[Rfam]
Nucleotides: 094
Stems, first nucleotide, its partner, number of pairs: 008088004015080009025069001027067009
Number, partner (000 for none) and nucleotide at each position: 001000u002000g003000a004000g005000u006000u007000u008088u009087g010086g011085g012000g013000u014000a015080c016079g017078u018077g019076u020075c021074a022073g023072a024000a025069g026000u027067g028066c029065a030064u031063u032062u033061a034060c035059a036000u037000c038000a039000g040000g041000a042000a043000u044000u045000a046000c047000g048000a049000u050000u051000g052000a053000g054000g055000u056000a057000c058000u059035u060034g061033u062032a063031a064030a065029u066028g067027c068000a069025c070000u071000a072023u073022c074021u075020g076019g077018u078017a079016c080015g081000a082000c083000a084000u085011u086010c087009c088008a089000g090000a091000a092000u093000c094000g